[Rfam]
RNA sequence: AUGUUAUCAAGAAAGGUGGAGGGAAUAGACCCUGUGAAACCUUGGCAACCCUUCCUUAACGGAAGAAGGUGCUAAAUUCUACCAAAGUUUUUUGGAUAGAUAACAU
Numbered sequence: 001a002u003g004u005u006a007u008c009a010a011g012a013a014a015g016g017u018g019g020a021g022g023g024a025a026u027a028g029a030c031c032c033u034g035u036g037a038a039a040c041c042u043u044g045g046c047a048a049c050c051c052u053u054c055c056u057u058a059a060c061g062g063a064a065g066a067a068g069g070u071g072c073u074a075a076a077u078u079c080u081a082c083c084a085a086a087g088u089u090u091u092u093u094g095g096a097u098a099g100a101u102a103a104c105a106u
Stems, first nucleotide, its partner, number of pairs: 001106008013043005021032003026081004044073004049069002051065004077098001082095005

The record is a 106-nucleotide RNA from Riemerella anatipestifer, which matches "SAM riboswitch aptamer (S box leader)" in Rfam. Rfam links the family to the GO term regulation of gene expression. From the family's description: The SAM riboswitch is found upstream of a number of genes which code for proteins involved in methionine or cysteine biosynthesis in Gram-positive bacteria. The match comes from Rfam's covariance-model search (93 bits). Taxonomically the source falls in Riemerella anatipestifer (Bacteria, Flavobacteriia, Flavobacteriales, Riemerella). The family's consensus secondary structure is taken from published work.